[Rfam]
RNA sequence: UCAUAGGAUGUUUUAGCUAUUGAACUGUUGUGCCCCUCUCUAACUUAGAACAAAUUGUUCUUUGACAGAGAGGGAUAUAACAGUUCAAUAGCUAAAACGUCCUAUAC
Numbered sequence: 001u002c003a004u005a006g007g008a009u010g011u012u013u014u015a016g017c018u019a020u021u022g023a024a025c026u027g028u029u030g031u032g033c034c035c036c037u038c039u040c041u042a043a044c045u046u047a048g049a050a051c052a053a054a055u056u057g058u059u060c061u062u063u064g065a066c067a068g069a070g071a072g073g074g075a076u077a078u079a080a081c082a083g084u085u086c087a088a089u090a091g092c093u094a095a096a097a098c099g100u101c102c103u104a105u106a107c
Base pairs, nucleotide, nucleotide: 001106003105004104005103006102011097012096013095014094015093016092017091018090019089020088021087022086023085024084025083026082027081028080029069031067032066034064049059050058051057052056